SAM riboswitch aptamer (S box leader): a 102-nucleotide RNA sequence from Brevibacillus brevis. The match comes from Rfam's covariance-model search (93 bits). Lineage of the source: Bacteria > Bacillati > Bacillota > Caryophanales > Brevibacillus brevis.
[Rfam]
RNA sequence: CUCUUAUGAAGAGAGGUUGAGGGACUGGCCCUAUGACACCUCGGCAACCUAUCGCAAACGAUACGGUGCCAAAUCCAGCGGAAUUAUUCCGACAGAUAAGAG
Numbered sequence: 001c002u003c004u005u006a007u008g009a010a011g012a013g014a015g016g017u018u019g020a021g022g023g024a025c026u027g028g029c030c031c032u033a034u035g036a037c038a039c040c041u042c043g044g045c046a047a048c049c050u051a052u053c054g055c056a057a058a059c060g061a062u063a064c065g066g067u068g069c070c071a072a073a074u075c076c077a078g079c080g081g082a083a084u085u086a087u088u089c090c091g092a093c094a095g096a097u098a099a100g101a102g
Stems, first nucleotide, its partner, number of pairs: 001102007013042005021031003025078004043070004048066002051062004074094001079091005